[Rfam]
The family of this 91-nucleotide RNA from Streptomyces glaucescens is "sodF sRNA". The pairing is the family consensus, mapped onto this sequence. The family's RNA type in Rfam is small RNA. Rfam 15.1 lists 336 matches to the family in 317 species. A reference for the family is Kim et al. (2014), "Inverse regulation of Fe- and Ni-containing SOD genes by a Fur family regulator Nur through small RNA processed from 3'UTR of the sodF mRNA", Nucleic Acids Res.
RNA sequence: ACGUCCCGCCUCGUGAUCGUCUUCUCACCCUUCACGCGGGCGGGCGGCAGGGCGGAGACCCCCGUGAGGACCUGACUCACGGGGGUUUUCC
Numbered sequence: 001a002c003g004u005c006c007c008g009c010c011u012c013g014u015g016a017u018c019g020u021c022u023u024c025u026c027a028c029c030c031u032u033c034a035c036g037c038g039g040g041c042g043g044g045c046g047g048c049a050g051g052g053c054g055g056a057g058a059c060c061c062c063c064g065u066g067a068g069g070a071c072c073u074g075a076c077u078c079a080c081g082g083g084g085g086u087u088u089u090c091c
Stems, first nucleotide, its partner, number of pairs: 002046002005044007013035004019029001054090015
Dot-bracket structure: .((.(((((((.((((..(.........)..))))..))))))))).......(((((((((((((((.......))))))))))))))).